RNA sequence: UGCCGGGCGUGCGCGAAUACAAGACCUUCGGGGAAUAAGCGCGCGGGACCUAUGGCCCGUUGUCAGCGCCCGGCGCCCAGUUU
Numbered sequence: 001u002g003c004c005g006g007g008c009g010u011g012c013g014c015g016a017a018u019a020c021a022a023g024a025c026c027u028u029c030g031g032g033g034a035a036u037a038a039g040c041g042c043g044c045g046g047g048a049c050c051u052a053u054g055g056c057c058c059g060u061u062g063u064c065a066g067c068g069c070c071c072g073g074c075g076c077c078c079a080g081u082u083u
Stems, first nucleotide, its partner, number of pairs: 001075009011042004016036001025032002043060005
RNA: sRNA-Xcc1